[Rfam]
RNA sequence: GCCGAGACUAGAGUCACAUCUGGACACUGCCUGUUGCCCUGGUGUGCUAGAGUACUCGGAAAGCAACAACUAGUCUAUAUUCACUGGCUGAGCCCAUUCGUGAUUCAGUCAGCCACCAGGUUAGUGACAGGA
Numbered sequence: 001g002c003c004g005a006g007a008c009u010a011g012a013g014u015c016a017c018a019u020c021u022g023g024a025c026a027c028u029g030c031c032u033g034u035u036g037c038c039c040u041g042g043u044g045u046g047c048u049a050g051a052g053u054a055c056u057c058g059g060a061a062a063g064c065a066a067c068a069a070c071u072a073g074u075c076u077a078u079a080u081u082c083a084c085u086g087g088c089u090g091a092g093c094c095c096a097u098u099c100g101u102g103a104u105u106c107a108g109u110c111a112g113c114c115a116c117c118a119g120g121u122u123a124g125u126g127a128c129a130g131g132a
Base pairs, nucleotide, nucleotide: 002059003058004057005056006055007053008052009051012048013047015046016045017044018043019042020041023038025036026035070124071123072122073121074120075119076118084112085111086110087109089107090106091105092104094102